[Rfam]
RNA sequence: AGUCACAAGUUCAAGGCCACAGCAGAAGUGCUCAUAGCACAGCCCUGUCAAAUUCCAAUAAAUUUGCAAAUUCUGCU
Numbered sequence: 001a002g003u004c005a006c007a008a009g010u011u012c013a014a015g016g017c018c019a020c021a022g023c024a025g026a027a028g029u030g031c032u033c034a035u036a037g038c039a040c041a042g043c044c045c046u047g048u049c050a051a052a053u054u055c056c057a058a059u060a061a062a063u064u065u066g067c068a069a070a071u072u073c074u075g076c077u
Stems, first nucleotide, its partner, number of pairs: 015044003021077007028040003049066006